[Rfam]
Rfam assigns this 52-nucleotide RNA from Camelimonas lactis to the family "ffh sRNA".
NCBI's taxonomy places the organism under Bacteria, Pseudomonadati, Pseudomonadota, Hyphomicrobiales, Camelimonas.
A reference for the family is Meyer et al. (2009), "Identification of candidate structured RNAs in the marine organism 'Candidatus Pelagibacter ubique'", BMC Genomics.
Pairs were carried over by alignment from the consensus structure, which is taken from published work.
RNA sequence: UUCUCCGGAGGUCAACGUCCGACAGCGCGAUGCGCCCUCGGGCGCCGUUGGC
Numbered sequence: 001u002u003c004u005c006c007g008g009a010g011g012u013c014a015a016c017g018u019c020c021g022a023c024a025g026c027g028c029g030a031u032g033c034g035c036c037c038u039c040g041g042g043c044g045c046c047g048u049u050g051g052c
Base pairs, nucleotide, nucleotide: 016044017043018042019041020040021039022038025035026034027033028032